[Rfam]
Overview
Rfam assigns this 86-nucleotide RNA sequence from Roseimaritima ulvae to the family "Group II catalytic intron D1-D4-1". Pairs were carried over by alignment from the consensus structure. NCBI's taxonomy places the organism under Bacteria, Pseudomonadati, Planctomycetota, Pirellulaceae, Roseimaritima.
RNA sequence: CGGAUGCGGUAACGCAUGCCGUGCGAUGAGCAGUCAGCAGAAGCCAUAGUACUGAACUUCCGCUUCCCAGCGGAAACAGGAAGGGC
Dot-bracket structure: .(.(((((....))))).)..............((....)).(((......(((.....((..........))...)))....)))